Shown here is an 81-nucleotide RNA sequence from [Pantoea] beijingensis, a member of the family "OmrA-B family". A reference for the family is Wassarman et al. (2001), "Identification of novel small RNAs using comparative genomics and microarrays", Genes Dev. By type it is a small RNA.
[Rfam]
RNA sequence: CCCAGAGGUAUUGAUGGGUGAACAUCAAAAGUUUUCUUUUACUUGAUUACACCGACCUGCGCAGAUGCGCAGGUUUUUUUU
Numbered sequence: 001c002c003c004a005g006a007g008g009u010a011u012u013g014a015u016g017g018g019u020g021a022a023c024a025u026c027a028a029a030a031g032u033u034u035u036c037u038u039u040u041a042c043u044u045g046a047u048u049a050c051a052c053c054g055a056c057c058u059g060c061g062c063a064g065a066u067g068c069g070c071a072g073g074u075u076u077u078u079u080u081u
Stems, first nucleotide, its partner, number of pairs: 017053004021043001028039004055074008